L17-Actino-Proteobacteria ribosomal protein leader: a 58-nucleotide RNA sequence from Nonomuraea cavernae. By type it is a cis-regulatory leader. Taxonomically the source falls in Nonomuraea (Bacteria, Bacillati, Actinomycetota, Streptosporangiaceae). It scores 53 bits against the family's covariance model. On this family, see Eckert and Weinberg, BMC Microbiol 2020: "Discovery of 20 novel ribosomal leader candidates in bacteria and archaea".
RNA sequence: CAGGGGCCGUGCGAGCGGCCCCCGUCCCCGACUCCGGUACCUCGUACGGCCGGAGCGG
Numbered sequence: 001c002a003g004g005g006g007c008c009g010u011g012c013g014a015g016c017g018g019c020c021c022c023c024g025u026c027c028c029c030g031a032c033u034c035c036g037g038u039a040c041c042u043c044g045u046a047c048g049g050c051c052g053g054a055g056c057g058g
Stems, first nucleotide, its partner, number of pairs: 001024001003022007028058003032055007